[Rfam]
RNA sequence: CUUGAUCGAGCCCAGCUUGAACGGCGUGUCCCGGUCCUGGCCGUACGUCGCCAGCAGCGCCUGGGCCUC
Dot-bracket structure: ..............(((.....))).....(((...(((.(.(....).).)))...)).....)....
Numbered sequence: 001c002u003u004g005a006u007c008g009a010g011c012c013c014a015g016c017u018u019g020a021a022c023g024g025c026g027u028g029u030c031c032c033g034g035u036c037c038u039g040g041c042c043g044u045a046c047g048u049c050g051c052c053a054g055c056a057g058c059g060c061c062u063g064g065g066c067c068u069c
Stems, first nucleotide, its partner, number of pairs: 015025003031065001032059002037054003041050001043048001